RNA sequence: UAUUAAACCUGAUAGUAACGGAAAUACUUUUUUGUUGCAUCAUCUUGUUGUUGAAUUGCACUGUUUAAAGGUUUCUCGGCUGCGCUCGAAAUGACGAAAGACGUUAAUACAAAAAGAUUGAAGUGGAUAGCAGGGCUUGCU
Numbered sequence: 001u002a003u004u005a006a007a008c009c010u011g012a013u014a015g016u017a018a019c020g021g022a023a024a025u026a027c028u029u030u031u032u033u034g035u036u037g038c039a040u041c042a043u044c045u046u047g048u049u050g051u052u053g054a055a056u057u058g059c060a061c062u063g064u065u066u067a068a069a070g071g072u073u074u075c076u077c078g079g080c081u082g083c084g085c086u087c088g089a090a091a092u093g094a095c096g097a098a099a100g101a102c103g104u105u106a107a108u109a110c111a112a113a114a115a116g117a118u119u120g121a122a123g124u125g126g127a128u129a130g131c132a133g134g135g136c137u138u139g140c141u
Stems, first nucleotide, its partner, number of pairs: 009133003013129002018124002023119003029114004035109001
RNA: Flavo-1 RNA
Organism: Pedobacter planticolens